[Rfam]
RNA: Mammalian CPEB3 ribozyme
Organism: Alligator sinensis
RNA sequence: ACUGCAAGUUUGAGGCUAUAGUAGAAGUACUCACAGCAUAGCCCUGUCAGAUUCCAACAAGUCUGUCAAUUCUGCU
Numbered sequence: 001a002c003u004g005c006a007a008g009u010u011u012g013a014g015g016c017u018a019u020a021g022u023a024g025a026a027g028u029a030c031u032c033a034c035a036g037c038a039u040a041g042c043c044c045u046g047u048c049a050g051a052u053u054c055c056a057a058c059a060a061g062u063c064u065g066u067c068a069a070u071u072c073u074g075c076u
Base pairs, nucleotide, nucleotide: 012044014043015042016041017040020076021075022074023073024072025071026070027039028038048065049064050063051062052061053060